[Rfam]
RNA sequence: GGGGACCUUCGGGGCCCUAUAAUCCGGGUCUGUAUCAACAGACCCCCAAGCUAACGGAAGACAGAGA
Numbered sequence: 001g002g003g004g005a006c007c008u009u010c011g012g013g014g015c016c017c018u019a020u021a022a023u024c025c026g027g028g029u030c031u032g033u034a035u036c037a038a039c040a041g042a043c044c045c046c047c048a049a050g051c052u053a054a055c056g057g058a059a060g061a062c063a064g065a066g067a
Stems, first nucleotide, its partner, number of pairs: 001018004006014003026045007

L2-Alphaproteobacteria ribosomal protein leader: a 67-nucleotide sequence from Pseudorhodobacter wandonensis. On this family, see Eckert and Weinberg, BMC Microbiol 2020: "Discovery of 20 novel ribosomal leader candidates in bacteria and archaea". The base pairs follow the family's consensus structure, which is taken from published work. The family's RNA type in Rfam is cis-regulatory leader. The sequence is in the family's curated seed alignment. The source organism's lineage runs through Bacteria, Pseudomonadati, Alphaproteobacteria, Paracoccaceae and Pseudorhodobacter.